A member of the RNA family "Bacterial RNase P class A" from Georgenia soli, 385 nucleotides long. Rfam's curators write: Ribonuclease P (RNase P) is a ubiquitous endoribonuclease, found in archaea, bacteria and eukarya as well as chloroplasts and mitochondria. Its best characterised activity is the generation of mature 5'-ends of tRNAs by cleaving the 5'-leader elements of precursor-tRNAs. Cellular RNase Ps are ribonucleoproteins. RNA from bacterial RNase Ps retains its catalytic activity in the absence of the protein subunit, i.e. it is a ribozyme. It scores 300 bits against the family's covariance model. By type it is a ribozyme.
RNA sequence: UGAGUCGGCCAGGCGGUCGCGUCACGCCGGUUCCGGCCGGUGUGCCGAGGAACGUCCGGGCUCCGCAGGACAGGGUGGUGGGUAACGCCCACCCGGGGUGACCCGCGGGAAAGUGCCACAGAGAGCAGACCGCCUCCCUGGUCCGCCAGGGAGGUAAGGGUGAAACGGUGGUGUAAGAGACCACCAGCACGGCGGGUGACCGUCGUGGCUCGGUAAACCCCACCCGGAGCAAGACCAGACAGCAGGCGUUCGAGGGUUGUCCGCCCGAGCCUGCGGGUAGGUCGCUCGAGGCGUGCGGCAACGCACGUCCUAGAUGGAUGGCCGCCACCGCGGCGCCGGCAACGGCACCGUGGGACAGAACCCGGCGUACCGGCCGACUCAUCCG
Number, nucleotide and partner (000 for none) at each position: 001u381002g380003a379004g378005u377006c376007g375008g374009c373010c372011a000012g326013g325014c324015g323016g322017u321018c320019g000020c047021g046022u000023c044024a043025c042026g041027c040028c039029g038030g037031u000032u000033c000034c000035g000036g000037c030038c029039g028040g027041u026042g025043u024044g023045c000046c021047g020048a000049g000050g000051a000052a368053c367054g366055u000056c365057c364058g363059g362060g361061c229062u228063c227064c226065g000066c000067a000068g262069g261070a260071c259072a000073g225074g224075g223076u222077g221078g092079u091080g090081g089082g088083u000084a000085a000086c000087g000088c082089c081090c080091a079092c078093c107094c105095g104096g103097g102098g000099u000100g000101a000102c097103c096104c095105g094106c000107g093108g220109g219110a000111a000112a000113g218114u217115g214116c213117c212118a000119c000120a000121g000122a000123g000124a000125g000126c000127a000128g000129a000130c159131c158132g155133c154134c153135u152136c151137c150138c149139u148140g147141g000142u000143c000144c000145g000146c000147c140148a139149g138150g137151g136152a135153g134154g133155u132156a000157a000158g131159g130160g000161u000162g000163a000164a000165a000166c000167g185168g184169u183170g182171g181172u180173g000174u000175a000176a000177g000178a000179g000180a172181c171182c170183a169184c168185c167186a000187g209188c207189a206190c205191g204192g203193c202194g201195g200196g000197u000198g000199a000200c195201c194202g193203u192204c191205g190206u189207g188208g000209c187210u000211c000212g117213g116214u115215a000216a000217a114218c113219c109220c108221c077222a076223c075224c074225c073226g064227g063228a062229g061230c000231a000232a000233g283234a282235c281236c280237a000238g000239a000240c000241a000242g274243c273244a272245g271246g270247c269248g000249u000250u000251c000252g000253a000254g266255g265256g264257u263258u000259g071260u070261c069262c068263g257264c256265c255266c254267g000268a000269g247270c246271c245272u244273g243274c242275g000276g000277g000278u000279a000280g236281g235282u234283c233284g000285c000286u000287c000288g000289a000290g309291g308292c307293g306294u305295g304296c303297g302298g000299c000300a000301a000302c297303g296304c295305a294306c293307g292308u291309c290310c000311u000312a000313g000314a000315u000316g000317g000318a000319u000320g018321g017322c016323c015324g014325c013326c012327a000328c000329c000330g000331c000332g000333g000334c000335g000336c000337c000338g000339g000340c000341a000342a000343c000344g000345g000346c000347a000348c000349c000350g000351u000352g000353g000354g000355a000356c000357a000358g000359a000360a000361c060362c059363c058364g057365g056366c054367g053368u052369a000370c000371c000372g010373g009374c008375c007376g006377a005378c004379u003380c002381a001382u000383c000384c000385g000